[Rfam]
RNA sequence: UCAUAUUACAUGUUUUGUGCGUGAAUCUAAUUCAUAUUCUCAUGUAGUAAUCCUAUCUUGUUGUUGGAUUAGAUUCACGCACAAACUCGUAAUCUGUCU
Numbered sequence: 001u002c003a004u005a006u007u008a009c010a011u012g013u014u015u016u017g018u019g020c021g022u023g024a025a026u027c028u029a030a031u032u033c034a035u036a037u038u039c040u041c042a043u044g045u046a047g048u049a050a051u052c053c054u055a056u057c058u059u060g061u062u063g064u065u066g067g068a069u070u071a072g073a074u075u076c077a078c079g080c081a082c083a084a085a086c087u088c089g090u091a092a093u094c095u096g097u098c099u
Base pairs, nucleotide, nucleotide: 002096003095005093006092007091012086013085015084016083017082018081019080020079021078022077023076024075025074026073027072029070030069031068033066034065
The family of this 99-nucleotide RNA from Brassica napus is "MIR403 microRNA precursor family". A search with the family's covariance model found it, with a score of 75 bits. The literature on the family includes a 2009 paper in BMC Genomics by Mica et al., "High throughput approaches reveal splicing of primary microRNA transcripts and tissue specific expression of mature microRNAs in Vitis vinifera". The family has 13 seed sequences and 215 matches in Rfam 15.1. NCBI's taxonomy places the organism under Eukaryota, Euphyllophyta, Gunneridae, Pentapetalae, Brassica.